Source information
Shown here is a 101-nucleotide RNA sequence from Ectobacillus ponti, a member of the family "S10-Clostridia ribosomal protein leader". Taxonomically the source falls in Ectobacillus (Bacteria, Bacillati, Bacilli, Bacillaceae). On this family, see Eckert and Weinberg, BMC Microbiol 2020: "Discovery of 20 novel ribosomal leader candidates in bacteria and archaea". The match comes from Rfam's covariance-model search (40 bits).
RNA sequence: UGACUGCGAUGAAACGGAAGGUUGCUGACACACCCGGCCGCUUUGCCAUGGCGAGUGUGAGGAAAUUUCCGUGGAGAAUGUCUAUUUUUUAAAAUAGGCGA
Numbered sequence: 001u002g003a004c005u006g007c008g009a010u011g012a013a014a015c016g017g018a019a020g021g022u023u024g025c026u027g028a029c030a031c032a033c034c035c036g037g038c039c040g041c042u043u044u045g046c047c048a049u050g051g052c053g054a055g056u057g058u059g060a061g062g063a064a065a066u067u068u069c070c071g072u073g074g075a076g077a078a079u080g081u082c083u084a085u086u087u088u089u090u091a092a093a094a095u096a097g098g099c100g101a
Base pairs, nucleotide, nucleotide: 014072015071016070019068020067021066025061026060028058029057030056031055081101082100086098087097088096